[Rfam]
RNA sequence: CAAAUAAUUCGUUAGGUGAGGCUCCUGAAUGAACACAGGCUGCUGCCCAAAAAUGUCCAGAGACGCCAAUGGGUAGAACAGGCAAGAUCGGCUUAAGGUCUGCUUAAGGUAGCUGAUUUCCCCGGGAAAUCUACGUCAUUCAGUGCUAAAACUCAGACGAGGAGUUAUCGU
Numbered sequence: 001c002a003a004a005u006a007a008u009u010c011g012u013u014a015g016g017u018g019a020g021g022c023u024c025c026u027g028a029a030u031g032a033a034c035a036c037a038g039g040c041u042g043c044u045g046c047c048c049a050a051a052a053a054u055g056u057c058c059a060g061a062g063a064c065g066c067c068a069a070u071g072g073g074u075a076g077a078a079c080a081g082g083c084a085a086g087a088u089c090g091g092c093u094u095a096a097g098g099u100c101u102g103c104u105u106a107a108g109g110u111a112g113c114u115g116a117u118u119u120c121c122c123c124g125g126g127a128a129a130u131c132u133a134c135g136u137c138a139u140u141c142a143g144u145g146c147u148a149a150a151a152c153u154c155a156g157a158c159g160a161g162g163a164g165u166u167a168u169c170g171u
Stems, first nucleotide, its partner, number of pairs: 005167006011158002013096001015153003020147003025143008039113005045074005054065004081104004087099003115131005
Shown here is a 171-nucleotide sequence from Tindallia californiensis, a member of the family "M-box riboswitch aptamer (ykoK leader)". Rfam 15.1 lists 1,095 matches to the family in 932 species. A reference for the family is Barrick et al. (2004), "New RNA motifs suggest an expanded scope for riboswitches in bacterial genetic control", Proc Natl Acad Sci U S A. From the family's description: M-box riboswitch, also know as ykoK leader is described as a metaloregulatory RNA that sense divalent metals and function as a genetic control element of genes related to divalent metal transport in bacteria. It was first reported upstream of the B.subtilis ykoK gene and genes with related functions in other bacteria. Taxonomically the source falls in Tindallia (Bacteria, Clostridia, Peptostreptococcales, Tindalliaceae).